The family of this 119-nucleotide RNA sequence is "Group II catalytic intron D1-D4-4". The family has 90 seed sequences and 840 matches in Rfam 15.1. On this family, see Bonen and Vogel, Trends Genet 2001: "The ins and outs of group II introns". Rfam describes the family as follows. Group II introns are found in rRNA, tRNA and mRNA of organelles in fungi, plants and protists, and also in mRNA in bacteria.
[Rfam]
RNA sequence: CAGCGGGCUAAAGUCCCGUCCGGGGAAUUGUCUGUGCACCCCGGUAGCACAGGGAAGCGGCGUCGGAGUAAUCAGGGGUCGUAAGUUUCCCGAUGGCAAAGCCGCAGGCCGUAACACAA
Number, nucleotide and partner (000 for none) at each position: 001c000002a000003g000004c000005g000006g000007g000008c000009u000010a000011a000012a000013g000014u000015c000016c000017c000018g000019u000020c044021c043022g042023g041024g040025g000026a000027a000028u000029u000030g000031u000032c000033u000034g000035u000036g000037c000038a000039c000040c024041c023042c022043g021044g020045u000046a000047g000048c000049a000050c000051a000052g091053g090054g089055a088056a087057g082058c081059g080060g079061c078062g000063u000064c000065g000066g073067a072068g000069u000070a000071a000072u067073c066074a000075g000076g000077g000078g061079u060080c059081g058082u057083a000084a000085g000086u000087u056088u055089c054090c053091c052092g000093a000094u000095g000096g112097c111098a000099a000100a000101g000102c000103c000104g000105c000106a000107g000108g000109c000110c000111g097112u096113a000114a000115c000116a000117c000118a000119a000